[Rfam]
RNA sequence: AACUAAGAUAGAGGCGCGAAAUUUAAAAGUAGUAUUGCGGAGGUAAGCUUGAUGAUGUGAUACGAAAGGAUCUUUCGCCGAAGUAAAUAGUUAAUUGCUUUAAUACUAUUUGCUGGGCUUAUGUAAAAUAUGCAUAAGACUGUCACGAAUUAUUUUGUGGAGAGCUAUUUUCAAU
Numbered sequence: 001a002a003c004u005a006a007g008a009u010a011g012a013g014g015c016g017c018g019a020a021a022u023u024u025a026a027a028a029g030u031a032g033u034a035u036u037g038c039g040g041a042g043g044u045a046a047g048c049u050u051g052a053u054g055a056u057g058u059g060a061u062a063c064g065a066a067a068g069g070a071u072c073u074u075u076c077g078c079c080g081a082a083g084u085a086a087a088u089a090g091u092u093a094a095u096u097g098c099u100u101u102a103a104u105a106c107u108a109u110u111u112g113c114u115g116g117g118c119u120u121a122u123g124u125a126a127a128a129u130a131u132g133c134a135u136a137a138g139a140c141u142g143u144c145a146c147g148a149a150u151u152a153u154u155u156u157g158u159g160g161a162g163a164g165c166u167a168u169u170u171u172c173a174a175u
Base pairs, nucleotide, nucleotide: 006170007169008168009167010166011165016078017077018076019075020074021073024070032063033062034061035060036059037058038057039056082114083113084112085111086110087109088108089107090106091105115141116140118138119137120136121135122134123133124132125131143160144159145158146157147156148155149154
Lysine riboswitch aptamer: a 175-nucleotide sequence from Clostridium chromiireducens.
From the family's description: Riboswitches are metabolite binding domains within certain messenger RNAs that serve as precision sensors for their corresponding targets.
Taxonomically the source falls in Clostridium (Bacteria, Clostridia, Eubacteriales, Clostridiaceae).